[Rfam]
RNA sequence: CCAUAUUCCAAGCCGAAGUCCCGGUCAUCGGGACACGGGGGACCCAUUUGUGGGGUGAAGCCGCAUAUUUAUGCGGCCGGGGCUACUCUUUGACCCGAACCCGGCAGCUAACCUCGCAGGCAAACAAAGGGAGGAAAU
Numbered sequence: 001c002c003a004u005a006u007u008c009c010a011a012g013c014c015g016a017a018g019u020c021c022c023g024g025u026c027a028u029c030g031g032g033a034c035a036c037g038g039g040g041g042a043c044c045c046a047u048u049u050g051u052g053g054g055g056u057g058a059a060g061c062c063g064c065a066u067a068u069u070u071a072u073g074c075g076g077c078c079g080g081g082g083c084u085a086c087u088c089u090u091u092g093a094c095c096c097g098a099a100c101c102c103g104g105c106a107g108c109u110a111a112c113c114u115c116g117c118a119g120g121c122a123a124a125c126a127a128a129g130g131g132a133g134g135a136a137a138u
Stems, first nucleotide, its partner, number of pairs: 012121003018034007036116005045052002053102003061076004079096003
Overview: This 138-nucleotide RNA sequence from Cohnella pontilimi belongs to the Rfam family "c-di-AMP riboswitch aptamer (ydaO/yuaA leader)".